[Rfam]
RNA sequence: CGACUAGAUCAUAUGAUCGCGGAGGCAACUCUGAGGAAAGUCCGAGCUCCACAGGGCAGGAUGCCGGAUAACGUCCGGUAAAGGUGACUUUAAGGCAAGUGCAACAGAAAGUAAACCGCCGCAUCUGCGGUAAGGGUGAAAGGGUGAGGUAAGAGCUCACCAGUGGUUGAAGUAAUUCGCCAGCUGGGUAAACCCCAUUCGGAGCAAGACCAAGAACGAGCGUUAAAAGGCGGCGGCCCGUCGCUGCUCUCAGGUAGGUCGCUUGAGUUUGCUGGUGACAGCAAAACGAGAUAGAUGAUCAUUUAAACAGAACUCGGCUUACAGAUCUAAUCAAAAA
Numbered sequence: 001c002g003a004c005u006a007g008a009u010c011a012u013a014u015g016a017u018c019g020c021g022g023a024g025g026c027a028a029c030u031c032u033g034a035g036g037a038a039a040g041u042c043c044g045a046g047c048u049c050c051a052c053a054g055g056g057c058a059g060g061a062u063g064c065c066g067g068a069u070a071a072c073g074u075c076c077g078g079u080a081a082a083g084g085u086g087a088c089u090u091u092a093a094g095g096c097a098a099g100u101g102c103a104a105c106a107g108a109a110a111g112u113a114a115a116c117c118g119c120c121g122c123a124u125c126u127g128c129g130g131u132a133a134g135g136g137u138g139a140a141a142g143g144g145u146g147a148g149g150u151a152a153g154a155g156c157u158c159a160c161c162a163g164u165g166g167u168u169g170a171a172g173u174a175a176u177u178c179g180c181c182a183g184c185u186g187g188g189u190a191a192a193c194c195c196c197a198u199u200c201g202g203a204g205c206a207a208g209a210c211c212a213a214g215a216a217c218g219a220g221c222g223u224u225a226a227a228a229g230g231c232g233g234c235g236g237c238c239c240g241u242c243g244c245u246g247c248u249c250u251c252a253g254g255u256a257g258g259u260c261g262c263u264u265g266a267g268u269u270u271g272c273u274g275g276u277g278a279c280a281g282c283a284a285a286a287c288g289a290g291a292u293a294g295a296u297g298a299u300c301a302u303u304u305a306a307a308c309a310g311a312a313c314u315c316g317g318c319u320u321a322c323a324g325a326u327c328u329a330a331u332c333a334a335a336a337a
Stems, first nucleotide, its partner, number of pairs: 002332002005329006013302006020033005038320003042317005047204004054239004059200005064078005079093001080091004094195002099193002101189002116135002118131005143161006163184001164182003168179004208260004218251003222247002230244005268285007